A member of the RNA family "Small nucleolar RNA SNORA48" from Rattus norvegicus, 147 nucleotides long. Clan: SNORA48 clan. It scores 51 bits against the family's covariance model. The snoRNA ACA 48 has been identified to guide pseudouridylation of the residue U3797 in the 28S rRNA subunit. The family's consensus secondary structure was predicted with RNAalifold.
Nucleotides: 147
Base pairs, nucleotide, nucleotide: 001068002066003065004064005063007061008060013057014056015055019051020050021049023045025043026042027041028040088141089140090139091138102135104133109130110129113126114125116123
Number, partner (000 for none) and nucleotide at each position: 001068u002066c003065c004064c005063c006000a007061u008060a009000g010000c011000a012000a013057u014056g015055g016000g017000c018000a019051a020050a021049g022000a023045g024000a025043c026042a027041c028040c029000a030000u031000g032000u033000u034000g035000g036000u037000g038000g039000u040028g041027g042026u043025g044000g045023u046000g047000u048000u049021c050020u051019u052000a053000c054000a055015u056014c057013a058000g059000c060008u061007a062000a063005g064004g065003g066002g067000c068001a069000c070000a071000g072000c073000a074000g075000a076000u077000g078000g079000c080000a081000g082000g083000c084000c085000c086000u087000u088141g089140u090139u091138c092000a093000u094000c095000c096000u097000a098000g099000a100000u101000u102135g103000a104133u105000g106000c107000c108000g109130g110129g111000c112000u113126u114125g115000c116123u117000g118000g119000c120000c121000u122000a123116a124000c125114u126113a127000u128000c129110u130109u131000a132000u133104g134000a135102c136000u137000a138091g139090g140089a141088c142000u143000c144000a145000u146000a147000a